[Rfam]
RNA sequence: GCCUGGAAGACCCUUAUUGGUCUGGGGCGCAGGCAUCAAACCUGUAGCUGUUGAGCAACAGAGUGGUUCAUUUCCACCUUUUGAGU
Numbered sequence: 001g002c003c004u005g006g007a008a009g010a011c012c013c014u015u016a017u018u019g020g021u022c023u024g025g026g027g028c029g030c031a032g033g034c035a036u037c038a039a040a041c042c043u044g045u046a047g048c049u050g051u052u053g054a055g056c057a058a059c060a061g062a063g064u065g066g067u068u069c070a071u072u073u074c075c076a077c078c079u080u081u082u083g084a085g086u
Stems, first nucleotide, its partner, number of pairs: 001086002004083006012027005029045005048061005063077004

This 86-nucleotide RNA sequence from Charadrius vociferus belongs to the Rfam family "Selenocysteine transfer RNA". The source organism's lineage runs through Eukaryota, Craniata, Gnathostomata, Tetrapoda and Charadrius.